Shown here is a 106-nucleotide sequence from Brevibacillus fulvus, a member of the family "SAM riboswitch aptamer (S box leader)". Rfam describes the family as follows. The SAM riboswitch is found upstream of a number of genes which code for proteins involved in methionine or cysteine biosynthesis in Gram-positive bacteria. The match comes from Rfam's covariance-model search (94 bits).
RNA sequence: CUCUUAUCCAGAGUGGUGGAGGGACUGGCCCGAUGAAACCCGGCAACCCCGCGUCAGCGGAGAGGUGCUAAUUCCAGCAGACAGUGUAUUGUCUGAGAGAUAAGAG
Numbered sequence: 001c002u003c004u005u006a007u008c009c010a011g012a013g014u015g016g017u018g019g020a021g022g023g024a025c026u027g028g029c030c031c032g033a034u035g036a037a038a039c040c041c042g043g044c045a046a047c048c049c050c051g052c053g054u055c056a057g058c059g060g061a062g063a064g065g066u067g068c069u070a071a072u073u074c075c076a077g078c079a080g081a082c083a084g085u086g087u088a089u090u091g092u093c094u095g096a097g098a099g100a101u102a103a104g105a106g
Stems, first nucleotide, its partner, number of pairs: 001106008013041001015040003021031003025077004042069004047065002049060004073098001078095006